[Rfam]
RNA: Potassium channel RNA editing signal
Organism: Neogobius melanostomus
RNA sequence: GUGGGCUAUGGGGAUAUGGUCCCGGUCACCAUAGGAGGCAAAAUUGUGGGUUCUUUAUGCGCCAUUGCUGGAGUGCUAACAAUCGCUCUCCCAGUCCCUGUCAUUGUGUCUAAC
Dot-bracket structure: ((.((.(((((.((((.((.(...............((((........(((.........)))..........))))................).)).)))).))))).)).))